[Rfam]
RNA sequence: CACUAAGGAACGCAGGCUAAGUACGCCACGUCCUGUGGCAGCGCCUGCAUGGCCCACUUCCUGUGGG
Numbered sequence: 001c002a003c004u005a006a007g008g009a010a011c012g013c014a015g016g017c018u019a020a021g022u023a024c025g026c027c028a029c030g031u032c033c034u035g036u037g038g039c040a041g042c043g044c045c046u047g048c049a050u051g052g053c054c055c056a057c058u059u060c061c062u063g064u065g066g067g
Base pairs, nucleotide, nucleotide: 012048013047014046015045016044017043025039026038027037028036029035053067054066055065056064057063
A member of the RNA family "Bacillaceae-1 RNA" from Bacillus sp. NRRL B-14911, 67 nucleotides long.
Rfam classes the family as a small RNA.